[Rfam]
The family of this 55-nucleotide sequence from Gadus morhua is "UnaL2 LINE 3' element". The eel long interspersed element (LINE) UnaL2 and its partner short interspersed element (SINE) share a conserved 3' tail containing a stem-loop that is critical for their retrotransposition. Presumably, the first step of retrotransposition is the recognition of their 3' tails by UnaL2-encoded reverse transcriptase. The solution structure of a 17-nucleotide RNA derived from the 3' tail of UnaL2 was determined by NMR. Rfam classes the family as a cis-regulatory element.

RNA sequence: AACUAUACUUACUGUAGGUCGCUUUGGAUAAAAGCGUCUGCUAAUAUGCCCUAAA
Numbered sequence: 001a002a003c004u005a006u007a008c009u010u011a012c013u014g015u016a017g018g019u020c021g022c023u024u025u026g027g028a029u030a031a032a033a034g035c036g037u038c039u040g041c042u043a044a045u046a047u048g049c050c051c052u053a054a055a
Stems, first nucleotide, its partner, number of pairs: 013043001014041003020036006